[Rfam]
A member of the RNA family "Bacterial RNase P class A" from Psittacicella hinzii, 341 nucleotides long. A search with the family's covariance model found it, with a score of 302 bits. The source organism's lineage runs through Bacteria, Pseudomonadati, Pseudomonadota, Psittacicellaceae and Psittacicella. The base pairs follow the family's consensus structure, which is taken from published work. Ribonuclease P (RNase P) is a ubiquitous endoribonuclease, found in archaea, bacteria and eukarya as well as chloroplasts and mitochondria.

RNA sequence: UUAGUAGUUCGAGUAAUCGCUGGUUAGUAAUAAUCAGAGGAAAGUCCGGACUCCAUAUGGGCAUGGUGCCAGGUAAUGCCUGGGAGGUGUGAACCUACGACUAGUGCAACAGAAAGUAAACCGCCGACUUGUCGGUAAGGGUGAAACGGUGAGGUAAGAGCUCACCAGGCAGUCCAGCAAUGGCUGUGCUUGGUAAACUCCACCAGGAGCAAGAUCAAAUAGGCGUUCGCAUAAUUCGCCCAUAGUUUGAACGCGGGUAGAUCGCUUGAAGUUAGUAGUGAUGCUAACUCUAGAUGAAUGAUUACAUAAAACAGAAUCCGGCUUACGGAAUAACUAAAACC
Numbered sequence: 001u002u003a004g005u006a007g008u009u010c011g012a013g014u015a016a017u018c019g020c021u022g023g024u025u026a027g028u029a030a031u032a033a034u035c036a037g038a039g040g041a042a043a044g045u046c047c048g049g050a051c052u053c054c055a056u057a058u059g060g061g062c063a064u065g066g067u068g069c070c071a072g073g074u075a076a077u078g079c080c081u082g083g084g085a086g087g088u089g090u091g092a093a094c095c096u097a098c099g100a101c102u103a104g105u106g107c108a109a110c111a112g113a114a115a116g117u118a119a120a121c122c123g124c125c126g127a128c129u130u131g132u133c134g135g136u137a138a139g140g141g142u143g144a145a146a147c148g149g150u151g152a153g154g155u156a157a158g159a160g161c162u163c164a165c166c167a168g169g170c171a172g173u174c175c176a177g178c179a180a181u182g183g184c185u186g187u188g189c190u191u192g193g194u195a196a197a198c199u200c201c202a203c204c205a206g207g208a209g210c211a212a213g214a215u216c217a218a219a220u221a222g223g224c225g226u227u228c229g230c231a232u233a234a235u236u237c238g239c240c241c242a243u244a245g246u247u248u249g250a251a252c253g254c255g256g257g258u259a260g261a262u263c264g265c266u267u268g269a270a271g272u273u274a275g276u277a278g279u280g281a282u283g284c285u286a287a288c289u290c291u292a293g294a295u296g297a298a299u300g301a302u303u304a305c306a307u308a309a310a311a312c313a314g315a316a317u318c319c320g321g322c323u324u325a326c327g328g329a330a331u332a333a334c335u336a337a338a339a340c341c
Stems, first nucleotide, its partner, number of pairs: 001337005007331004011326001013305006020037007042324003046321005051209004060241002064205005069083005084098001085096004099200002104198002106194002121140002123136005148166006168189001169187004174183003213263004223254006233247004270289008